[Rfam]
RNA: Plastid-ccsA-ndhD-1 3UTR RNA
RNA sequence: CAAUCGGAGAAAACCAUGUGAAUCAAGUGGUAUAGUGAUUCACAUGAUUUUUACAAA
Numbered sequence: 001c002a003a004u005c006g007g008a009g010a011a012a013a014c015c016a017u018g019u020g021a022a023u024c025a026a027g028u029g030g031u032a033u034a035g036u037g038a039u040u041c042a043c044a045u046g047a048u049u050u051u052u053a054c055a056a057a
Base pairs, nucleotide, nucleotide: 007054009052010051011050012049013048015046016045017044018043019042020041021040022039023038024037025036